Overview:
Shown here is a 116-nucleotide sequence from Dickeya dadantii, a member of the family "Soft rot Enterobacteriaceae Fwd 6 3'UTR". By type it is a cis-regulatory element. Pairs were carried over by alignment from the consensus structure, which was predicted with RNAfold. From bacteria cultured under starvation conditions. A reference for the family is Kwenda et al. (2016), "Discovery and profiling of small RNAs responsive to stress conditions in the plant pathogen Pectobacterium atrosepticum", BMC Genomics. The source organism's lineage runs through Bacteria, Pseudomonadota, Gammaproteobacteria, Pectobacteriaceae and Dickeya dadantii. The match comes from Rfam's covariance-model search (86 bits).
RNA sequence: AUUCUGUAAUUAAACUACAGGAUUGUGUGACCCGGUUUGGGUUUGUUUAAUUCAUCACCGAUUUUUAUGAAAUUAAACAACAAAAAAACCUUUUUUCCAGAAAGGAAAUGGGGUAG
Dot-bracket structure: ...((((.........))))..............(((((.((((...((....(........)..))..)))))))))((.(((......))).))((.............))...